[Rfam]
Nucleotides: 082
Base pairs, nucleotide, nucleotide: 001081002080003079004078005077006076007075010024011023012022013021026052027051028050029049030048058074059073060072061071062070
Number, partner (000 for none) and nucleotide at each position: 001081g002080g003079u004078g005077g006076c007075g008000u009000g010024g011023c012022c013021u014000a015000a016000u017000g018000g019000u020000a021013a022012g023011g024010c025000g026052u027051u028050g029049c030048u031000u032000u033000c034000c035000g036000g037000u038000c039000u040000c041000g042000g043000a044000a045000u046000a047000u048030g049029g050028c051027a052026a053000a054000g055000a056000c057000u058074g059073u060072g061071g062070g063000u064000u065000c066000g067000a068000g069000u070062c071061c072060c073059a074058u075007c076006g077005c078004c079003a080002u081001c082000g